The record is an 87-nucleotide sequence from Ruania alkalisoli, which matches "SAM riboswitch aptamer (S box leader)" in Rfam.
Pairs were carried over by alignment from the consensus structure, which is taken from published work.
A reference for the family is Huang et al. (2021), "Structure and folding of four putative kink turns identified in structured RNA species in a test of structural prediction rules", Nucleic Acids Res.
NCBI's taxonomy places the organism under Bacteria, Bacillati, Micrococcales, Ruaniaceae, Ruania.
RNA sequence: AGACCAUCCAGAGCAGCUGAGAGAUCUGGCUCGACGACGCUGCAGCAACCUCGCCCACGAAGGUGCUACCGCCAGAACCGAUGGAGG
Numbered sequence: 001a002g003a004c005c006a007u008c009c010a011g012a013g014c015a016g017c018u019g020a021g022a023g024a025u026c027u028g029g030c031u032c033g034a035c036g037a038c039g040c041u042g043c044a045g046c047a048a049c050c051u052c053g054c055c056c057a058c059g060a061a062g063g064u065g066c067u068a069c070c071g072c073c074a075g076a077a078c079c080g081a082u083g084g085a086g087g
Stems, first nucleotide, its partner, number of pairs: 004084005013043005021032003026075004044067004049063002051060003071079001